Shown here is a 79-nucleotide RNA from Ladona fulva, a member of the family "mir-1 microRNA precursor family". A reference for the family is Lee and Ambros (2001), "An extensive class of small RNAs in Caenorhabditis elegans", Science.

RNA sequence: GGAUUAAGGAAAGACUUCGUAAUUUUCCACACAAUAUAUAUAAUAUUGUGUGGAAAAUUACGAAGUCUUUCCUUAUUCU
Numbered sequence: 001g002g003a004u005u006a007a008g009g010a011a012a013g014a015c016u017u018c019g020u021a022a023u024u025u026u027c028c029a030c031a032c033a034a035u036a037u038a039u040a041u042a043a044u045a046u047u048g049u050g051u052g053g054a055a056a057a058u059u060a061c062g063a064a065g066u067c068u069u070u071c072c073u074u075a076u077u078c079u
Stems, first nucleotide, its partner, number of pairs: 007073019027053005